[Rfam]
RNA sequence: GGUUCCGCACGACGCCUAAAGAUAAACAACCGGGGGAAAUGACCUCUCCAUACCUCCCCCUCCCCUCUCACCCGGUCGGGUGAAUCACCCCAACCUGGCUGGCGCAUAUGACAAUUCACCGGGCACUCUGACUCCGGACAACCCCAUAAACGCAUUCGGCCCUCGUACGGGACGGACAUCCCGACACGAGGGCCUCACCACAGAGAAGGCAACACCCUUCCC
Numbered sequence: 001g002g003u004u005c006c007g008c009a010c011g012a013c014g015c016c017u018a019a020a021g022a023u024a025a026a027c028a029a030c031c032g033g034g035g036g037a038a039a040u041g042a043c044c045u046c047u048c049c050a051u052a053c054c055u056c057c058c059c060c061u062c063c064c065c066u067c068u069c070a071c072c073c074g075g076u077c078g079g080g081u082g083a084a085u086c087a088c089c090c091c092a093a094c095c096u097g098g099c100u101g102g103c104g105c106a107u108a109u110g111a112c113a114a115u116u117c118a119c120c121g122g123g124c125a126c127u128c129u130g131a132c133u134c135c136g137g138a139c140a141a142c143c144c145c146a147u148a149a150a151c152g153c154a155u156u157c158g159g160c161c162c163u164c165g166u167a168c169g170g171g172a173c174g175g176a177c178a179u180c181c182c183g184a185c186a187c188g189a190g191g192g193c194c195u196c197a198c199c200a201c202a203g204a205g206a207a208g209g210c211a212a213c214a215c216c217c218u219u220c221c222c
Stems, first nucleotide, its partner, number of pairs: 002201002014064001068083006099130001101128002158194005164188003169182004205220005
RNA: Streptomyces sRNA 4677
Organism: Streptomyces sp. ISL-86